[Rfam]
The record is a 90-nucleotide RNA sequence from Etheostoma spectabile, which matches "Small nucleolar SNORD12/SNORD106" in Rfam. Lineage of the source: Eukaryota > Bilateria > Actinopteri > Acanthomorphata > Oligocephalus. Pairs were carried over by alignment from the consensus structure, which was predicted with RNAalifold. A reference for the family is Vitali et al. (2003), "Identification of 13 novel human modification guide RNAs", Nucleic Acids Res. Rfam classes the family as a C/D-box small nucleolar RNA. The family is grouped with related families in Rfam's "SNORD12 clan".
RNA sequence: GCUGUGGUUAAUGAUGCACACUCUUUCCCCGACUUAUCGACUAUGGUGAUACAAUAUGCAACAUAAGCCAUUUUUUUCUGAAACCACAUU
Numbered sequence: 001g002c003u004g005u006g007g008u009u010a011a012u013g014a015u016g017c018a019c020a021c022u023c024u025u026u027c028c029c030c031g032a033c034u035u036a037u038c039g040a041c042u043a044u045g046g047u048g049a050u051a052c053a054a055u056a057u058g059c060a061a062c063a064u065a066a067g068c069c070a071u072u073u074u075u076u077u078c079u080g081a082a083a084c085c086a087c088a089u090u
Base pairs, nucleotide, nucleotide: 001090003088004087005086006085007084008083009082